Background:
The family of this 348-nucleotide sequence from Ketogulonicigenium robustum is "Alphaproteobacteria transfer-messenger RNA". The source organism's lineage runs through Bacteria, Pseudomonadati, Alphaproteobacteria, Roseobacteraceae and Ketogulonicigenium. The base pairs follow the family's consensus structure, which is taken from published work. Gene Ontology term of the family: RNA catabolic process. It scores 289 bits against the family's covariance model. By type it is a non-coding RNA gene.
[Rfam]
RNA sequence: CGUAUUGAAAUCGGCCCCGUUGCGGCCUAUCUAGGCGGUGUCCUUCGGGACUAUGGGCAUAAACGCGCUCGGAAUAAGCGGAUCGGACCCGGGGGCGGUACCCGGCGGCUCCACCAUAUCCUUAUUGGGGGAUCAUGGGGCCGAAACAGGAUCGACGAACGUGUAAAGGGGAUGGCUUUGUCCCGGUGAGGUACCACCGUUAUCGGUCCGUAUUGUACAGUUGCCAAUAACAACCGUGCUCCGGCAAUGGCUCUGGCUGCUUAAGCAGUUCGAGUCGCCGAAACUAAGUCCUAACGCUUAGCCGCGUUAGGCGGGGUUCGCAGGUACCUGGCAACAGAAACCUGCACU
Numbered sequence: 001c002g003u004a005u006u007g008a009a010a011u012c013g014g015c016c017c018c019g020u021u022g023c024g025g026c027c028u029a030u031c032u033a034g035g036c037g038g039u040g041u042c043c044u045u046c047g048g049g050a051c052u053a054u055g056g057g058c059a060u061a062a063a064c065g066c067g068c069u070c071g072g073a074a075u076a077a078g079c080g081g082a083u084c085g086g087a088c089c090c091g092g093g094g095g096c097g098g099u100a101c102c103c104g105g106c107g108g109c110u111c112c113a114c115c116a117u118a119u120c121c122u123u124a125u126u127g128g129g130g131g132a133u134c135a136u137g138g139g140g141c142c143g144a145a146a147c148a149g150g151a152u153c154g155a156c157g158a159a160c161g162u163g164u165a166a167a168g169g170g171g172a173u174g175g176c177u178u179u180g181u182c183c184c185g186g187u188g189a190g191g192u193a194c195c196a197c198c199g200u201u202a203u204c205g206g207u208c209c210g211u212a213u214u215g216u217a218c219a220g221u222u223g224c225c226a227a228u229a230a231c232a233a234c235c236g237u238g239c240u241c242c243g244g245c246a247a248u249g250g251c252u253c254u255g256g257c258u259g260c261u262u263a264a265g266c267a268g269u270u271c272g273a274g275u276c277g278c279c280g281a282a283a284c285u286a287a288g289u290c291c292u293a294a295c296g297c298u299u300a301g302c303c304g305c306g307u308u309a310g311g312c313g314g315g316g317u318u319c320g321c322a323g324g325u326a327c328c329u330g331g332c333a334a335c336a337g338a339a340a341c342c343u344g345c346a347c348u
Stems, first nucleotide, its partner, number of pairs: 040051004055183005065176002068171003079161002083158003089105005106143007184199004190209002193207003314329004320345006